[Rfam]
Annotation: This 109-nucleotide RNA sequence from Gossypium hirsutum belongs to the Rfam family "MIR403 microRNA precursor family".
RNA sequence: GCAUAUUUCAGGUUUGUGUAUGAAUCUGAUAAAACCAUAAGCUAGAAAAAGAAGAUGGAAAGGUGGAUUUGUUUCAUGUUAGAUUCACGCACAAACUCGUAAUCUGUCU
Numbered sequence: 001g002c003a004u005a006u007u008u009c010a011g012g013u014u015u016g017u018g019u020a021u022g023a024a025u026c027u028g029a030u031a032a033a034a035c036c037a038u039a040a041g042c043u044a045g046a047a048a049a050a051g052a053a054g055a056u057g058g059a060a061a062g063g064u065g066g067a068u069u070u071g072u073u074u075c076a077u078g079u080u081a082g083a084u085u086c087a088c089g090c091a092c093a094a095a096c097u098c099g100u101a102a103u104c105u106g107u108c109u
Stems, first nucleotide, its partner, number of pairs: 001107003005103003011097009021087006028080003043066001045064001

Lineage of the source: Eukaryota > Streptophytina > Gunneridae > Malvaceae > Gossypium. For this family Rfam cites "High throughput approaches reveal splicing of primary microRNA transcripts and tissue specific expression of mature microRNAs in Vitis vinifera" (Mica et al., BMC Genomics, 2009). Its family is annotated with miRNA-mediated post-transcriptional gene silencing and RISC complex in the Gene Ontology.